[Rfam]
RNA sequence: GGACACAACUCUGGAGAUACUCAUUCAAUUGAGAGCCGAAGGUGCAAGGGCACAGCCCCAAUCUCUCAGGCAAAAGGACAGGGUCGGGAGC
Numbered sequence: 001g002g003a004c005a006c007a008a009c010u011c012u013g014g015a016g017a018u019a020c021u022c023a024u025u026c027a028a029u030u031g032a033g034a035g036c037c038g039a040a041g042g043u044g045c046a047a048g049g050g051c052a053c054a055g056c057c058c059c060a061a062u063c064u065c066u067c068a069g070g071c072a073a074a075a076g077g078a079c080a081g082g083g084u085c086g087g088g089a090g091c
Stems, first nucleotide, its partner, number of pairs: 006086001008084006020033004035071003038067002042065001044063001048058002
The family of this 91-nucleotide sequence from Succiniclasticum ruminis is "Glycine riboswitch aptamer". Taxonomically the source falls in Succiniclasticum ruminis (Bacteria, Negativicutes, Acidaminococcales, Acidaminococcaceae). Pairs were carried over by alignment from the consensus structure. The match comes from Rfam's covariance-model search (67 bits).